The family of this 131-nucleotide sequence from Plutella xylostella is "U11 spliceosomal RNA".
Lineage of the source: Eukaryota > Eumetazoa > Mandibulata > Amphiesmenoptera > Plutella.
RNA sequence: UAAAAGGGUGUUUGCCUCUUUGAUGGCACGUGCGCUGGCAACGGCGCGCGGGGUAUGGUCAUCAAGACAUACCCAACACGUCAUUUUUGUGAACAAGAGGCAGUUGGCUACCCCUAAGUACCGGCGCUUCU
Numbered sequence: 001u002a003a004a005a006g007g008g009u010g011u012u013u014g015c016c017u018c019u020u021u022g023a024u025g026g027c028a029c030g031u032g033c034g035c036u037g038g039c040a041a042c043g044g045c046g047c048g049c050g051g052g053g054u055a056u057g058g059u060c061a062u063c064a065a066g067a068c069a070u071a072c073c074c075a076a077c078a079c080g081u082c083a084u085u086u087u088u089g090u091g092a093a094c095a096a097g098a099g100g101c102a103g104u105u106g107g108c109u110a111c112c113c114c115u116a117a118g119u120a121c122c123g124g125c126g127c128u129u130c131u
Base pairs, nucleotide, nucleotide: 008079009078010077011076012075013028014027015026016025029050030049031048032047033046034045035044036043037042051074052073053072054071055070056069057068098129099128100127101126103125104124105123106122107121109120110119111118
By type it is a spliceosomal small nuclear RNA. The base pairs follow the family's consensus structure, which is taken from published work.